[Rfam]
RNA sequence: UUACAAUAGACUAGGCAUUCGAGGGUGGUCGGCUAACCUUCUUUAAGUGGAGGUGAUGCCCUGUGGAAGUUAAAGACGCUUUGACGCUAAUGAUUUCAUUCGCGAGCUUAGUGGUUCUCAUUCUUUCACAGAAAAAGAAAUAGACCUCCCUUGGGCUAGCGGCCUUGGAGGUCUAUCUUCGUCACAAAGUAUACAGCUGAUCACCCUUGAAGGGCGAGCUAUUGGAACUGACCGCUUUGAUGCCCCCGCAUCAGCG
Number, nucleotide and partner (000 for none) at each position: 001u227002u226003a000004c224005a223006a000007u221008a220009g219010a000011c000012u200013a000014g198015g197016c196017a000018u155019u154020c153021g152022a151023g150024g149025g148026u000027g145028g000029u143030c000031g000032g000033c000034u056035a000036a054037c000038c053039u052040u051041c050042u049043u000044u000045a000046a000047g000048u000049g042050g041051a040052g039053g038054u036055g000056a034057u000058g000059c000060c000061c000062u000063g000064u000065g127066g126067a125068a124069g123070u000071u000072a000073a000074a000075g000076a000077c000078g000079c092080u000081u000082u000083g000084a000085c000086g000087c000088u000089a000090a000091u000092g079093a000094u000095u000096u000097c000098a000099u000100u000101c000102g119103c000104g117105a116106g000107c000108u000109u000110a000111g000112u000113g000114g000115u000116u105117c104118u000119c102120a000121u000122u000123c069124u068125u067126u066127c065128a000129c000130a000131g000132a000133a000134a000135a000136a000137g000138a000139a000140a000141u000142a000143g029144a000145c027146c000147u000148c025149c024150c023151u022152u021153g020154g019155g018156c000157u000158a000159g000160c000161g000162g000163c000164c000165u187166u186167g185168g000169a000170g000171g000172u000173c000174u000175a000176u000177c000178u000179u000180c000181g000182u000183c000184a000185c167186a166187a165188a000189g000190u000191a000192u000193a000194c000195a000196g016197c015198u014199g000200a012201u000202c216203a000204c214205c213206c000207u000208u000209g000210a000211a000212g000213g205214g204215c000216g202217a000218g000219c009220u008221a007222u000223u005224g004225g000226a002227a001228c000229u000230g000231a000232c000233c256234g255235c254236u000237u000238u253239g252240a251241u250242g249243c248244c000245c000246c000247c000248g243249c242250a241251u240252c239253a238254g235255c234256g233
This 256-nucleotide RNA sequence from Paenibacillus lutrae belongs to the Rfam family "BsrG".
On this family, see Saito et al., Gene 2008: "Novel small RNA-encoding genes in the intergenic regions of Bacillus subtilis".
Lineage of the source: Bacteria > Bacillota > Bacilli > Caryophanales > Paenibacillus.
Pairs were carried over by alignment from the consensus structure, which was predicted with WAR.
Its family is annotated with autolysis and toxin activity in the Gene Ontology.
A search with the family's covariance model found it, with a score of 58 bits.
By type it is a small RNA.
Rfam's curators write: bsrE, bsrG and bsrH pair through intermolecular interactions with antisense sRNAs. They form type I toxin/antitoxin system that includes an mRNA encoding for a short, toxic peptide (bsrE, bsrG and bsrH) and an antitoxin that is comprised of an antisense RNA. bsrG encodes a 39-amino-acid toxin, and the 180 nucleotide antisense sRNA called SR4 acts as the antitoxin (they overlap by 123 nucleotides).